[Rfam]
RNA sequence: CCAACGAUGGUAUCUGAGUGACUUAACACAUCACUUAGCUCUGCCAGUGUGGCGUACGGGAGCUGAACCCUCAUCCAGGGUUCUGAUGUAUAUUCCCUUUCCACGACGUUGGAGAGCAACCCCUGUCCCCAAUGUUCCGGCAUUGAUGUGGAUAGGCUCCUCGCAUAUUCCUGCGUCUUCUCUGAGCCACUCUGUGGCGGUGACUGAGGGGGUAAACCAUGCGAGGAACAGAU
Numbered sequence: 001c002c003a004a005c006g007a008u009g010g011u012a013u014c015u016g017a018g019u020g021a022c023u024u025a026a027c028a029c030a031u032c033a034c035u036u037a038g039c040u041c042u043g044c045c046a047g048u049g050u051g052g053c054g055u056a057c058g059g060g061a062g063c064u065g066a067a068c069c070c071u072c073a074u075c076c077a078g079g080g081u082u083c084u085g086a087u088g089u090a091u092a093u094u095c096c097c098u099u100u101c102c103a104c105g106a107c108g109u110u111g112g113a114g115a116g117c118a119a120c121c122c123c124u125g126u127c128c129c130c131a132a133u134g135u136u137c138c139g140g141c142a143u144u145g146a147u148g149u150g151g152a153u154a155g156g157c158u159c160c161u162c163g164c165a166u167a168u169u170c171c172u173g174c175g176u177c178u179u180c181u182c183u184g185a186g187c188c189a190c191u192c193u194g195u196g197g198c199g200g201u202g203a204c205u206g207a208g209g210g211g212g213u214a215a216a217c218c219a220u221g222c223g224a225g226g227a228a229c230a231g232a233u
Stems, first nucleotide, its partner, number of pairs: 001112006008046005014038003018029003049104004058097004062091001066087001067084001160225007177211006186198004

Notes:
Rfam assigns this 233-nucleotide RNA sequence from Patiria miniata to the family "Small nucleolar RNA SNORA73 family". The family has 66 seed sequences and 2,326 matches in Rfam 15.1. The family is grouped with related families in Rfam's "snR30-U17 clan". The family's RNA type in Rfam is H/ACA-box small nucleolar RNA. A search with the family's covariance model found it, with a score of 132 bits. U17 (SNORA73A and SNORA73B) also known as E1 belongs to the H/ACA class of small nucleolar RNAs (snoRNAs). Pairs were carried over by alignment from the consensus structure, which is taken from published work.